[Rfam]
RNA: Lysine riboswitch aptamer
Organism: Paenibacillus monticola
RNA sequence: CGAUGAGGUAGAGGUCGCGGAUAUAAAGAGUAAGUGCGUGGAGACGUUAAAGAGCCGUCUAUGAAGCGUUGCUGAAAGGAAUAUUCGCCGAAGCCUGCGUUGCCGCUCCUACUGCGGCGCGGGCUGGGGCCGUUACCGAAAGGUGCGGAACUGUCACCGUGCAUGGCCUGUGAAUUACAGCCAAGCUGCACGGUGUUGCGCUAUCUUCACA
Numbered sequence: 001c002g003a004u005g006a007g008g009u010a011g012a013g014g015u016c017g018c019g020g021a022u023a024u025a026a027a028g029a030g031u032a033a034g035u036g037c038g039u040g041g042a043g044a045c046g047u048u049a050a051a052g053a054g055c056c057g058u059c060u061a062u063g064a065a066g067c068g069u070u071g072c073u074g075a076a077a078g079g080a081a082u083a084u085u086c087g088c089c090g091a092a093g094c095c096u097g098c099g100u101u102g103c104c105g106c107u108c109c110u111a112c113u114g115c116g117g118c119g120c121g122g123g124c125u126g127g128g129g130c131c132g133u134u135a136c137c138g139a140a141a142g143g144u145g146c147g148g149a150a151c152u153g154u155c156a157c158c159g160u161g162c163a164u165g166g167c168c169u170g171u172g173a174a175u176u177a178c179a180g181c182c183a184a185g186c187u188g189c190a191c192g193g194u195g196u197u198g199c200g201c202u203a204u205c206u207u208c209a210c211a
Stems, first nucleotide, its partner, number of pairs: 006206006017088008033073002036069004092125012126152002130148004136142001155195009